[Rfam]
RNA sequence: GCACGUUUAUCCUUUCGGACGCAUGAAGCUCAAUCAGGAAACGGGGAUUGAGU
Numbered sequence: 001g002c003a004c005g006u007u008u009a010u011c012c013u014u015u016c017g018g019a020c021g022c023a024u025g026a027a028g029c030u031c032a033a034u035c036a037g038g039a040a041a042c043g044g045g046g047a048u049u050g051a052g053u
Stems, first nucleotide, its partner, number of pairs: 004043005010019003028053006034046002
Glutamine-II riboswitch aptamer: a 53-nucleotide RNA sequence. The literature on the family includes a 2019 paper in Nucleic Acids Res by Huang et al., "Structure and ligand binding of the glutamine-II riboswitch". Its family is annotated with glutamine binding in the Gene Ontology. The base pairs follow the family's consensus structure, which is taken from published work. The sequence is in the family's curated seed alignment.